[Rfam]
A member of the RNA family "Glycine riboswitch aptamer" from Halobacillus sp. BAB-2008, 89 nucleotides long.
A reference for the family is Babina et al. (2017), "In Vivo Behavior of the Tandem Glycine Riboswitch in Bacillus subtilis", MBio.
From the family's description: This family represents the bacterial glycine riboswitch.
A search with the family's covariance model found it, with a score of 71 bits.
RNA sequence: AUGACUGUAAUGGGAGAGACUACUACCGUGGCGCCGAAGGAGCAAACAAUCUUUGUGAAUCUCUCAGGCAAAAAGACCUUUACAGGACG
Dot-bracket structure: .....(((((.((......((((....)))).(((((..(((...((.......))....))))).))).......)).))))).....